[Rfam]
RNA sequence: GGUCAUGAGUGCCAGCUGCACGAGCCCCGGCUCGCUGGCCAGCAACCCUCCGGUACGGCGGGGUGCUCCGGGUGACGACCAGGUCGGCGACCCCCUCGGGCGUCGGCAAGCGUCCAGU
Numbered sequence: 001g002g003u004c005a006u007g008a009g010u011g012c013c014a015g016c017u018g019c020a021c022g023a024g025c026c027c028c029g030g031c032u033c034g035c036u037g038g039c040c041a042g043c044a045a046c047c048c049u050c051c052g053g054u055a056c057g058g059c060g061g062g063g064u065g066c067u068c069c070g071g072g073u074g075a076c077g078a079c080c081a082g083g084u085c086g087g088c089g090a091c092c093c094c095c096u097c098g099g100g101c102g103u104c105g106g107c108a109a110g111c112g113u114c115c116a117g118u
Base pairs, nucleotide, nucleotide: 001080002079003078004077009040011039012038013037014036015035016034023032024031041067042066043065046063047062048061050058051057083107084106085105086104087103088102089101091099092098